[Rfam]
Nucleotides: 092
Base pairs, nucleotide, nucleotide: 001087002086003085004084005083006082007081013078015076016075023074024073025072026071027070028069029046030045031044032043033042034041035040049061051059052058
Number, partner (000 for none) and nucleotide at each position: 001087c002086g003085u004084g005083g006082g007081u008000c009000u010000g011000c012000c013078c014000u015076g016075g017000g018000a019000g020000c021000c022000a023074c024073u025072g026071u027070a028069g029046g030045u031044c032043g033042u034041c035040c036000a037000a038000a039000c040035g041034g042033g043032c044031g045030g046029c047000a048000g049061c050000c051059g052058c053000g054000c055000a056000a057000c058052g059051c060000a061049g062000u063000g064000g065000g066000a067000u068000c069028c070027u071026a072025c073024a074023g075016c076015c077000c078013g079000a080000g081007a082006c083005u084004c085003g086002c087001g088000a089000c090000g091000a092000u

Overview: Shown here is a 92-nucleotide sequence, a member of the family "DUF3800-VII RNA".